This 120-nucleotide sequence from Caldisalinibacter kiritimatiensis belongs to the Rfam family "FMN riboswitch aptamer (RFN element)".
RNA sequence: UCUAGUCUUCAGGGCAGGGUGAAAUUCCCGACCGGCGGUUAAAGUCCGCGAGCUGUUAUAGACAGUUGAGCUGGUGAAAUUCCAGUACCGACAGUAAAGUCUGGAUGGGAGAAGAUUAGU
Numbered sequence: 001u002c003u004a005g006u007c008u009u010c011a012g013g014g015c016a017g018g019g020u021g022a023a024a025u026u027c028c029c030g031a032c033c034g035g036c037g038g039u040u041a042a043a044g045u046c047c048g049c050g051a052g053c054u055g056u057u058a059u060a061g062a063c064a065g066u067u068g069a070g071c072u073g074g075u076g077a078a079a080u081u082c083c084a085g086u087a088c089c090g091a092c093a094g095u096a097a098a099g100u101c102u103g104g105a106u107g108g109g110a111g112a113a114g115a116u117u118a119g120u
Stems, first nucleotide, its partner, number of pairs: 003118008017029003031100002033090002035049004044088002052066003070086005092103003